[Rfam]
RNA sequence: GGGUUACUCCUUGGCGCAUAUGCGCUGUUUCGAUAAAGAUUCGCACCUGUAUCAAAACGGGUAACCCCACCAUUUGCAAGGUGAGACUGUCAGAUCAAGUCUGAACUUCUACACGUAAUGGCUACGGCGUGCUGAAUCGUGCGCUGCCGAUCGCCUAUUUCGACCGCUUGGGAGUUCCAAGACUCGCCUAACCUCAACUUCUCGAACCGCCCGGUGCGGACCCGCAU
Dot-bracket structure: (((((((.((...((((....)))).((((.((((.((........)).)))).)))))))))))))........(...((.((....(((((((...))))).)).((((.(......................................................)))))..))))....)....................(..((((.....)))).)......
This 227-nucleotide RNA sequence from Chitinimonas sp. BJB300 belongs to the Rfam family "Proteobacterial sRNA psRNA2". The base pairs follow the family's consensus structure. The family's RNA type in Rfam is small RNA. Taxonomically the source falls in Chitinimonas (Bacteria, Pseudomonadota, Betaproteobacteria, Chitinibacteraceae). The match comes from Rfam's covariance-model search (113 bits).